Rfam assigns this 76-nucleotide sequence from Sousa chinensis to the family "mir-320 microRNA precursor family".
Lineage of the source: Eukaryota > Euteleostomi > Tetrapoda > Amniota > Sousa.

RNA sequence: AGCUGGCCAGGCCUUCUCUUCCCGGUUCUUCCCGGAGUCGGGAAAAGCUGGGUUGAGAGGGCGAAAAAGGAAGCGG
Numbered sequence: 001a002g003c004u005g006g007c008c009a010g011g012c013c014u015u016c017u018c019u020u021c022c023c024g025g026u027u028c029u030u031c032c033c034g035g036a037g038u039c040g041g042g043a044a045a046a047g048c049u050g051g052g053u054u055g056a057g058a059g060g061g062c063g064a065a066a067a068a069g070g071a072a073g074c075g076g
Stems, first nucleotide, its partner, number of pairs: 014059005021052005029044006

Rfam 15.1 lists 659 matches to the family in 129 species.